The family of this 77-nucleotide sequence from Sphingomonas sp. SRS2 is "Makes More Granules Regulator RNA (mmgR)". The base pairs follow the family's consensus structure. SuhB later renamed mmgR (makes more granules regulator) was a putative non-coding RNA found multiple times in the Agrobacterium tumefaciens genome and related alpha-proteobacteria.
[Rfam]
RNA sequence: AGAUCGGGCCUUUCAGGCAUCCUCUCCUAAAACUUUCAGGGCUGGUCCUCACGGAUCGGCCCUUUUUUUCGGUUGCG
Numbered sequence: 001a002g003a004u005c006g007g008g009c010c011u012u013u014c015a016g017g018c019a020u021c022c023u024c025u026c027c028u029a030a031a032a033c034u035u036u037c038a039g040g041g042c043u044g045g046u047c048c049u050c051a052c053g054g055a056u057c058g059g060c061c062c063u064u065u066u067u068u069u070c071g072g073u074u075g076c077g
Stems, first nucleotide, its partner, number of pairs: 008018004039062009